Nucleotides: 035
Stems, first nucleotide, its partner, number of pairs: 001035004006031003010028001013026002016023001017021001
Number, partner (000 for none) and nucleotide at each position: 001035c002034u003033g004032u005000c006031u007030c008029c009000u010028g011000c012000c013026u014025c015000a016023a017021c018000c019000g020000u021017g022000u023016u024000g025014g026013g027000a028010c029008g030007g031006a032004a033003c034002a035001g